[Rfam]
RNA sequence: AAGUGAAAAGUUCAUCAACCAUCCAGCUGUUUGGGGUAAUACAGACAAACAUCAGGUUUGUUGAGAGAAUUUCUUACUU
Numbered sequence: 001a002a003g004u005g006a007a008a009a010g011u012u013c014a015u016c017a018a019c020c021a022u023c024c025a026g027c028u029g030u031u032u033g034g035g036g037u038a039a040u041a042c043a044g045a046c047a048a049a050c051a052u053c054a055g056g057u058u059u060g061u062u063g064a065g066a067g068a069a070u071u072u073c074u075u076a077c078u079u
Stems, first nucleotide, its partner, number of pairs: 001079006008072006015064005021058001023056002026053001028051006
Rfam assigns this 79-nucleotide sequence from Lynx pardinus to the family "mir-2483 microRNA precursor family". Lineage of the source: Eukaryota > Metazoa > Eutheria > Carnivora > Lynx. Pairs were carried over by alignment from the consensus structure, which was predicted with RNAalifold. Rfam links the family to the GO terms miRNA-mediated post-transcriptional gene silencing and RISC complex.